[Rfam]
RNA: mir-166 microRNA precursor family
Organism: Protea cynaroides
RNA sequence: GUUGAGGGGAAUGUUGUCUGGUUCGAGAUCAUUCAUAUGAAGCACAAACUGAAUGAUUUCGGACCAGGCUUCAUUCCCCCCAAA
Numbered sequence: 001g002u003u004g005a006g007g008g009g010a011a012u013g014u015u016g017u018c019u020g021g022u023u024c025g026a027g028a029u030c031a032u033u034c035a036u037a038u039g040a041a042g043c044a045c046a047a048a049c050u051g052a053a054u055g056a057u058u059u060c061g062g063a064c065c066a067g068g069c070u071u072c073a074u075u076c077c078c079c080c081c082a083a084a
Base pairs, nucleotide, nucleotide: 002083003082004081006079007078008077009076010075011074012073013072016069017068018067019066020065021064024061025060026059027058028057029056030055031054032053